[Rfam]
RNA sequence: AUGCCUUAAACUGAUGAGUAAGGAAAAUAACGAUGCGGGUGACGCCGUGUCCUCAUUCAUGAGAAGAAUUUUGAUUGGGUACAGGUCUGCCUGCUGAGGUGACUCAUCUACUUCAUGAGAUGCCUUGCAGAACCGGAUCUGCCCU
Numbered sequence: 001a002u003g004c005c006u007u008a009a010a011c012u013g014a015u016g017a018g019u020a021a022g023g024a025a026a027a028u029a030a031c032g033a034u035g036c037g038g039g040u041g042a043c044g045c046c047g048u049g050u051c052c053u054c055a056u057u058c059a060u061g062a063g064a065a066g067a068a069u070u071u072u073g074a075u076u077g078g079g080u081a082c083a084g085g086u087c088u089g090c091c092u093g094c095u096g097a098g099g100u101g102a103c104u105c106a107u108c109u110a111c112u113u114c115a116u117g118a119g120a121u122g123c124c125u126u127g128c129a130g131a132a133c134c135g136g137a138u139c140u141g142c143c144c145u
Base pairs, nucleotide, nucleotide: 004023005022006021007020008019032051033050034049035048036047037046038045052063053062054061055060077144078143079142080141083140084139085138086137087136088135089134092129093128097125098124099123100122101121103119104118105117106116107115
Shown here is a 145-nucleotide sequence from Silurus meridionalis, a member of the family "U12 minor spliceosomal RNA".
By type it is a spliceosomal small nuclear RNA.
Lineage of the source: Eukaryota > Otomorpha > Otophysi > Siluroidei > Silurus.
Pairs were carried over by alignment from the consensus structure.